[Rfam]
Nucleotides: 072
Stems, first nucleotide, its partner, number of pairs: 002070005
Number, partner (000 for none) and nucleotide at each position: 001000u002070g003069g004068a005067u006066c007000a008000g009000u010000g011000a012000u013000a014000a015000c016000u017000a018000c019000u020000g021000g022000u023000g024000a025000u026000g027000u028000a029000u030000a031000a032000g033000u034000c035000a036000u037000g038000u039000a040000c041000a042000a043000u044000g045000a046000a047000u048000a049000a050000g051000u052000g053000u054000c055000u056000c057000c058000a059000a060000c061000u062000u063000u064000g065000a066006g067005g068004u069003u070002c071000a072000a
Description
The family of this 72-nucleotide sequence from Bos taurus is "Small nucleolar RNA SNORD113/SNORD114 family". Rfam describes the family as follows. The imprinted human domain at 14q32 contains two clusters of tandemly repeated small nucleolar RNAs named 14q(I) and 14q(II) snoRNAs. These two clusters are named SNORD113 and SNORD114 respectively in the HGNC approved gene symbol nomenclature. The snoRNAs found in both clusters are clearly related and are represented here by a single family. These snoRNAs are intron encoded and are processed from the tissue-specific non-coding human MEG8 RNA, which lies downstream of the imprinted genes DLK1 and GTL2. snoRNAs 14q(I) and 14q(II) differ from previously identified C/D box snoRNAs in their expression profiles and lack of complementarity to rRNA and snRNA. Homologues of these snoRNAs are found in the imprinted non-coding mouse transcript Rian, and in the rat non-coding Bsr (brain-specific repetitive) RNA. A reference for the family is Cavaille et al. (2002), "Identification of tandemly-repeated C/D snoRNA genes at the imprinted human 14q32 domain reminiscent of those at the Prader-Willi/Angelman syndrome region", Hum Mol Genet. Rfam 15.1 lists 5,721 matches to the family in 142 species.